[Rfam]
RNA sequence: CCCCCGGCCGGAUCCCGUGGGGGGAAUCCGAUCCGGGAUUGGAGAGCGCUUCGCCGGUCGAC
Numbered sequence: 001c002c003c004c005c006g007g008c009c010g011g012a013u014c015c016c017g018u019g020g021g022g023g024g025a026a027u028c029c030g031a032u033c034c035g036g037g038a039u040u041g042g043a044g045a046g047c048g049c050u051u052c053g054c055c056g057g058u059c060g061a062c
Stems, first nucleotide, its partner, number of pairs: 001060001003037005009030005014024003041050002